A member of the RNA family "6S / SsrS RNA" from Aureimonas sp. Leaf324, 159 nucleotides long.
Taxonomically the source falls in Aureimonas (Bacteria, Pseudomonadati, Alphaproteobacteria, Aurantimonadaceae).
Rfam's curators write: E. coli 6S RNA was the first non coding RNA to be sequenced, but its function was unknown until recently.
RNA sequence: GGCGGGCUGCGCGGUUCGACAGGGAUAACUUAUUCCCCGGGGCCUUACGCAUCCCUAAGGGAGCUGUUCCUGCCUCGGCCCGUGGGCUGGGGCAUACGGCGCCCACCUACUCUGUAGGUUCCCGGGAUCGAUCUUCUCAUCGGCCGAGGUGGCUCGCCA
Number, nucleotide and partner (000 for none) at each position: 001g000002g157003c156004g155005g154006g153007c152008u151009g150010c149011g000012c146013g145014g144015u143016u000017c142018g141019a140020c000021a000022g000023g000024g000025a000026u000027a000028a000029c000030u000031u000032a000033u000034u127035c126036c125037c124038c000039g122040g121041g120042g119043c118044c117045u000046u000047a000048c000049g000050c000051a000052u000053c000054c000055c000056u000057a000058a000059g104060g103061g102062a000063g100064c099065u098066g097067u096068u000069c000070c000071u000072g093073c092074c091075u090076c089077g088078g087079c086080c085081c000082g000083u000084g000085g080086g079087c078088u077089g076090g075091g074092g073093c072094a000095u000096a067097c066098g065099g064100c063101g000102c061103c060104c059105a000106c000107c000108u000109a000110c000111u000112c000113u000114g000115u000116a000117g044118g043119u042120u041121c040122c039123c000124g037125g036126g035127a034128u000129c000130g000131a000132u000133c000134u000135u000136c000137u000138c000139a000140u019141c018142g017143g015144c014145c013146g012147a000148g000149g010150u009151g008152g007153c006154u005155c004156g003157c002158c000159a000

A search with the family's covariance model found it, with a score of 83 bits.
On this family, see Trotochaud and Wassarman, Nat Struct Mol Biol 2005: "A highly conserved 6S RNA structure is required for regulation of transcription".